RNA sequence: AGAAGCCUUCGGGGUCGGGUGAAAAUCCCAGCCGGCGGUAAUGAGCAAAUGCUCCAAGCCCGCGACGGAAGACCAGUGUAAAGCACGGUUUUCCCUGAUUUGGUGAAAAUCCAAAGCCGACAGUUAAAGUCUGGAUGGGAGAAGGUUAUA
Number, nucleotide and partner (000 for none) at each position: 001a000002g000003a000004a147005g146006c145007c144008u143009u142010c141011g000012g000013g000014g000015u000016c000017g029018g028019g027020u000021g000022a000023a000024a000025a000026u000027c019028c018029c017030a000031g130032c129033c119034g118035g063036c062037g061038g060039u000040a000041a000042u000043g000044a000045g000046c000047a000048a000049a000050u000051g000052c000053u000054c000055c000056a000057a000058g117059c116060c038061c037062g036063c035064g000065a000066c000067g094068g093069a092070a091071g090072a089073c000074c000075a000076g000077u000078g000079u000080a000081a000082a000083g000084c000085a000086c000087g000088g000089u072090u071091u070092u069093c068094c067095c000096u000097g000098a000099u115100u114101u113102g112103g111104u000105g000106a000107a000108a000109a000110u000111c103112c102113a101114a100115a099116g059117c058118c034119g033120a000121c133122a132123g131124u000125u000126a000127a000128a000129g032130u031131c123132u122133g121134g000135a000136u000137g000138g000139g000140a000141g010142a009143a008144g007145g006146u005147u004148a000149u000150a000